[Rfam]
The family of this 128-nucleotide sequence from Sclerurus mexicanus is "Small nucleolar RNA SNORA9". From the family's description: ACA9 is a member of the H/ACA class of snoRNA that guide the sites of modification of uridines to pseudouridines. Gene Ontology terms of the family: nucleolus and RNA processing. Its Rfam clan is "SNORA9 clan". The family's RNA type in Rfam is H/ACA-box small nucleolar RNA.
RNA sequence: CCGCAGGAUCCAGCAUGGGCGGGUCUGGCGUGGCCCCCCCAUUCCUGCAGUCCUGCCAGAGUAUCCCGGGAAUGUUUGAGGCCUCUCCCGGUGCCUCCCGGGGGUGGUCAUAGAAUCCCCGGACACGC
Number, nucleotide and partner (000 for none) at each position: 001c000002c000003g056004c055005a054006g053007g052008a000009u000010c000011c000012a000013g000014c000015a000016u041017g040018g039019g000020c000021g036022g035023g034024u033025c032026u000027g000028g000029c000030g000031u000032g025033g024034c023035c022036c021037c000038c000039c018040c017041a016042u000043u000044c000045c000046u000047g000048c000049a000050g000051u000052c007053c006054u005055g004056c003057c000058a000059g000060a000061g000062u000063a000064u000065c000066c000067c121068g120069g119070g118071a000072a000073u000074g000075u000076u000077u000078g000079a000080g000081g000082c107083c106084u000085c104086u103087c102088c000089c100090g099091g098092u000093g000094c000095c000096u000097c000098c091099c090100g089101g000102g087103g086104g085105u000106g083107g082108u000109c000110a000111u000112a000113g000114a000115a000116u000117c000118c070119c069120c068121g067122g000123a000124c000125a000126c000127g000128c000